Source information
Rfam assigns this 46-nucleotide RNA from a Pirellulaceae bacterium to the family "Acido-Lenti-1 RNA". The family has 87 seed sequences and 2,607 matches in Rfam 15.1.
[Rfam]
RNA sequence: CCCAGGCCUUCGGCCUGGGCUAUCGUAUGAUCGGGCCUUCGGCCCU
Numbered sequence: 001c002c003c004a005g006g007c008c009u010u011c012g013g014c015c016u017g018g019g020c021u022a023u024c025g026u027a028u029g030a031u032c033g034g035g036c037c038u039u040c041g042g043c044c045c046u
Base pairs, nucleotide, nucleotide: 001019002018003017004016005015006014007013008012033045034044035043036042037041
It is annotated as a small RNA.